This 100-nucleotide RNA from Vibrio tapetis belongs to the Rfam family "Purine riboswitch aptamer".
Its family is annotated with purine nucleobase biosynthetic process in the Gene Ontology.
The base pairs follow the family's consensus structure, which is taken from published work.
Rfam's curators write: Riboswitches are metabolite binding domains within certain messenger RNAs that serve as precision sensors for their corresponding targets.
It scores 73 bits against the family's covariance model.

[Rfam]
RNA sequence: CUAUAAUGUAAACGUUUGCUUCGUAUAACCCCAAUGAUAUGGUUUGGGGGUCUCUACCAGUUCCCGCAAAGUGCUGAUUACGAAGAGUUGAGAACCCGUG
Numbered sequence: 001c002u003a004u005a006a007u008g009u010a011a012a013c014g015u016u017u018g019c020u021u022c023g024u025a026u027a028a029c030c031c032c033a034a035u036g037a038u039a040u041g042g043u044u045u046g047g048g049g050g051u052c053u054c055u056a057c058c059a060g061u062u063c064c065c066g067c068a069a070a071g072u073g074c075u076g077a078u079u080a081c082g083a084a085g086a087g088u089u090g091a092g093a094a095c096c097c098g099u100g
Base pairs, nucleotide, nucleotide: 019085020084021083022082023081024080025079029049030048031047032046033045034044058076059075060074061073063071